[Rfam]
RNA sequence: CGCGUAUUUCGCCAAGGCGGAACUCGACCGCCACCACAAGAAGUGAUGGGCUUCAUCGACGCACAACGCGAGCACUUCGGGGUCGAGUCGAUCUGCAAAGCCUUGCAGGUUGCCCCG
Numbered sequence: 001c002g003c004g005u006a007u008u009u010c011g012c013c014a015a016g017g018c019g020g021a022a023c024u025c026g027a028c029c030g031c032c033a034c035c036a037c038a039a040g041a042a043g044u045g046a047u048g049g050g051c052u053u054c055a056u057c058g059a060c061g062c063a064c065a066a067c068g069c070g071a072g073c074a075c076u077u078c079g080g081g082g083u084c085g086a087g088u089c090g091a092u093c094u095g096c097a098a099a100g101c102c103u104u105g106c107a108g109g110u111u112g113c114c115c116c117g
Base pairs, nucleotide, nucleotide: 016032017031018030019029020028078117079116080115081114082113089112090111092109093108094107095106096105097104098103

A member of the RNA family "ALIL pseudoknot" from Xanthomonas citri, 117 nucleotides long. Rfam's curators put it in the seed alignment. Rfam 15.1 lists 2,146 matches to the family in 1,098 species. The organism belongs to Xanthomonas citri pv. citri, within Bacteria. By type it is a cis-regulatory element. On this family, see Mazauric et al., J Biol Chem 2008: "Apical loop-internal loop RNA pseudoknots: a new type of stimulator of -1 translational frameshifting in bacteria". The family's consensus secondary structure is taken from published work.